[Rfam]
RNA sequence: GGGGUGAGGCCGGAUCCUGGUCUGUGUCCUGGAGUCAUGUGCUCCGGAGCCUGCGCUGUUGGAUUCGCGCUCCCGGCCGUGCAGCCCCCU
Numbered sequence: 001g002g003g004g005u006g007a008g009g010c011c012g013g014a015u016c017c018u019g020g021u022c023u024g025u026g027u028c029c030u031g032g033a034g035u036c037a038u039g040u041g042c043u044c045c046g047g048a049g050c051c052u053g054c055g056c057u058g059u060u061g062g063a064u065u066c067g068c069g070c071u072c073c074c075g076g077c078c079g080u081g082c083a084g085c086c087c088c089c090u
Stems, first nucleotide, its partner, number of pairs: 001090004006085001009082002011079003016076002019073002023069004027063003030058003034054002039051001041050003
Dot-bracket structure: ((((.(..(((((..((.((..((((((((((.((...(.(((....)))).)).)))..)))..))))..)).))))).))..).))))
RNA: mir-8799 microRNA precursor family
Organism: Canis lupus